U7 small nuclear RNA: a 62-nucleotide RNA sequence from Nyctereutes procyonoides. NCBI's taxonomy places the organism under Eukaryota, Bilateria, Chordata, Theria, Nyctereutes.

RNA sequence: AAGCAGUACAGCUCUUUUAGAAUUUGUCUCACGGUUUUUCCGGUCCUUACUGGAAGACUCCU
Numbered sequence: 001a002a003g004c005a006g007u008a009c010a011g012c013u014c015u016u017u018u019a020g021a022a023u024u025u026g027u028c029u030c031a032c033g034g035u036u037u038u039u040c041c042g043g044u045c046c047u048u049a050c051u052g053g054a055a056g057a058c059u060c061c062u
Base pairs, nucleotide, nucleotide: 033059034058035057036056037055039054040053041052042051043050044049
Record summary:
Rfam 15.1 lists 10,439 matches to the family in 569 species.